About this RNA:
The record is a 44-nucleotide sequence from cyanobiont of Ornithocercus magnificus, which matches "PhotoRC-I RNA" in Rfam. The family's RNA type in Rfam is cis-regulatory element. A search with the family's covariance model found it, with a score of 52 bits. Taxonomically the source falls in Synechococcales (Bacteria, Bacillati, Cyanobacteriota, Cyanophyceae).

RNA sequence: AGGCAGGGCACCCCUGCCCUUCCUUAACCGUCCCCAAGCGGGAC
Number, nucleotide and partner (000 for none) at each position: 001a000002g023003g022004c000005a020006g019007g018008g017009c016010a000011c000012c000013c000014c000015u000016g009017c008018c007019c006020u005021u000022c003023c002024u000025u000026a000027a000028c000029c000030g044031u043032c042033c041034c040035c000036a000037a000038g000039c000040g034041g033042g032043a031044c030